[Rfam]
RNA sequence: AAAUCAACUUCAUACAAUCCUUAUAUAUUUUUGGAAAUAUGGUCCAAAAGUCUCUACCUGGCAUCCGUAAAGUGCCGGACUAUAAGGAAAGUUAGAUCGCCG
Numbered sequence: 001a002a003a004u005c006a007a008c009u010u011c012a013u014a015c016a017a018u019c020c021u022u023a024u025a026u027a028u029u030u031u032u033g034g035a036a037a038u039a040u041g042g043u044c045c046a047a048a049a050g051u052c053u054c055u056a057c058c059u060g061g062c063a064u065c066c067g068u069a070a071a072g073u074g075c076c077g078g079a080c081u082a083u084a085a086g087g088a089a090a091g092u093u094a095g096a097u098c099g100c101c102g
Stems, first nucleotide, its partner, number of pairs: 018088008029049007058078007

Rfam assigns this 102-nucleotide sequence from Bacillus sp. FJAT-18017 to the family "Purine riboswitch aptamer".
Taxonomically the source falls in Bacillus (Bacteria, Bacillota, Caryophanales, Bacillaceae).
A search with the family's covariance model found it, with a score of 89 bits.